A member of the RNA family "transfer-messenger RNA", 364 nucleotides long.
The family's consensus secondary structure is taken from published work.
By type it is a non-coding RNA gene.
Bacterial tmRNA, also known as 10Sa RNA or SsrA, is named for its dual tRNA and mRNA-like properties. Its role is to liberate the mRNA from a stalled ribosome. To accomplish this part of the tmRNA is used as a reading frame that ends in a translation stop signal. The broken mRNA is replaced in the ribosome by the tmRNA and translation of the tmRNA leads to addition of a proteolysis tag to the incomplete protein enabling recognition by a protease. Recently a number of permuted tmRNA genes have been found encoded in two parts. tmRNAs have been identified in eubacteria and some chloroplasts but are absent from archaeal and eukaryote nuclear genomes.

[Rfam]
RNA sequence: GGGGGUGACCCCGGUUUCGACGUGGGUUACAAAGCAGUGCAGGGGCAUACCGAGGACCAGUCACCUCGUAAAACAACUGGAAAAAGUAUAGUCGCAAACGACGAAACUUACGCUCUAGCCGCUUAAUACCGGCUGGACGCUGCACCGAAGGGCCUUCGGUCGGGCAGGGCAACCUGCAGCAGCGUCAUAAAGAGAGGAUCGUGCCGUACCGGGUUACUUGAUACAGCAUUAAAUCCAAGGUAACUCGCCUUGCCUCAGCCUGCCGGUUGACGGUUGCAAGGUCAAAUCAAAUAACCAGGCUAAGUAUGUAGAACUGUCUGUAGAGGGCUUGCGGACGGGGGUUCGAUUCCCCCCACCUCCACCA
Numbered sequence: 001g002g003g004g005g006u007g008a009c010c011c012c013g014g015u016u017u018c019g020a021c022g023u024g025g026g027u028u029a030c031a032a033a034g035c036a037g038u039g040c041a042g043g044g045g046c047a048u049a050c051c052g053a054g055g056a057c058c059a060g061u062c063a064c065c066u067c068g069u070a071a072a073a074c075a076a077c078u079g080g081a082a083a084a085a086g087u088a089u090a091g092u093c094g095c096a097a098a099c100g101a102c103g104a105a106a107c108u109u110a111c112g113c114u115c116u117a118g119c120c121g122c123u124u125a126a127u128a129c130c131g132g133c134u135g136g137a138c139g140c141u142g143c144a145c146c147g148a149a150g151g152g153c154c155u156u157c158g159g160u161c162g163g164g165c166a167g168g169g170c171a172a173c174c175u176g177c178a179g180c181a182g183c184g185u186c187a188u189a190a191a192g193a194g195a196g197g198a199u200c201g202u203g204c205c206g207u208a209c210c211g212g213g214u215u216a217c218u219u220g221a222u223a224c225a226g227c228a229u230u231a232a233a234u235c236c237a238a239g240g241u242a243a244c245u246c247g248c249c250u251u252g253c254c255u256c257a258g259c260c261u262g263c264c265g266g267u268u269g270a271c272g273g274u275u276g277c278a279a280g281g282u283c284a285a286a287u288c289a290a291a292u293a294a295c296c297a298g299g300c301u302a303a304g305u306a307u308g309u310a311g312a313a314c315u316g317u318c319u320g321u322a323g324a325g326g327g328c329u330u331g332c333g334g335a336c337g338g339g340g341g342u343u344c345g346a347u348u349c350c351c352c353c354c355a356c357c358u359c360c361a362c363c364a
Stems, first nucleotide, its partner, number of pairs: 001360007021333008034321004040316003046308005051068005057080005114137008138184006146163001149160001153197004201229004206224003212245006247283001249281003254276001258271001260269001262300003266295003337353005